The record is a 131-nucleotide sequence from Jaculus jaculus, which matches "Small nucleolar RNA SNORA33" in Rfam.
[Rfam]
RNA sequence: GAGCCAGCCAAUUAAUCUGAUUAACUGAAUGGGUUUCUGCAGAAAUUUAGAAACAGCUGGCACCAGUGAUGCCAUUUUAUGAGAUUUAAGGACAACUGGGGUCAAUACGGUCCCUCGGAAUGACUACAAUA
Numbered sequence: 001g002a003g004c005c006a007g008c009c010a011a012u013u014a015a016u017c018u019g020a021u022u023a024a025c026u027g028a029a030u031g032g033g034u035u036u037c038u039g040c041a042g043a044a045a046u047u048u049a050g051a052a053a054c055a056g057c058u059g060g061c062a063c064c065a066g067u068g069a070u071g072c073c074a075u076u077u078u079a080u081g082a083g084a085u086u087u088a089a090g091g092a093c094a095a096c097u098g099g100g101g102u103c104a105a106u107a108c109g110g111u112c113c114c115u116c117g118g119a120a121u122g123a124c125u126a127c128a129a130u131a
Stems, first nucleotide, its partner, number of pairs: 003061005016043004071124001073122002083111001085109001087107002091103003
NCBI's taxonomy places the organism under Eukaryota, Amniota, Glires, Rodentia, Jaculus. Gene Ontology terms of the family: RNA processing and nucleolus. ACA33 is a member of the H/ACA class of snoRNA that guide the sites of modification of uridines to pseudouridines. It scores 89 bits against the family's covariance model.